Background:
A member of the RNA family "mir-46/mir-47/mir-281 microRNA precursor family" from Caenorhabditis bovis, 88 nucleotides long. The literature on the family includes a 2001 paper in Science by Lau et al., "An abundant class of tiny RNAs with probable regulatory roles in Caenorhabditis elegans". The base pairs follow the family's consensus structure, which was predicted with RNAalifold. Gene Ontology terms of the family: RISC complex and miRNA-mediated post-transcriptional gene silencing.
[Rfam]
RNA sequence: UGCCUGAGAAGCUGAAGAGAGCCGUCUAUUGACAGUUCGCUACUCAAUAUGAUAUUGUCAUGGAGUCGCUCUCUUCAGAUGAUCAAGG
Dot-bracket structure: .............(((((.(((..((((..(((.((.................)).))).))))...))).)))))............
Numbered sequence: 001u002g003c004c005u006g007a008g009a010a011g012c013u014g015a016a017g018a019g020a021g022c023c024g025u026c027u028a029u030u031g032a033c034a035g036u037u038c039g040c041u042a043c044u045c046a047a048u049a050u051g052a053u054a055u056u057g058u059c060a061u062g063g064a065g066u067c068g069c070u071c072u073c074u075u076c077a078g079a080u081g082a083u084c085a086a087g088g
Stems, first nucleotide, its partner, number of pairs: 014076005020070003025064004031059003035055002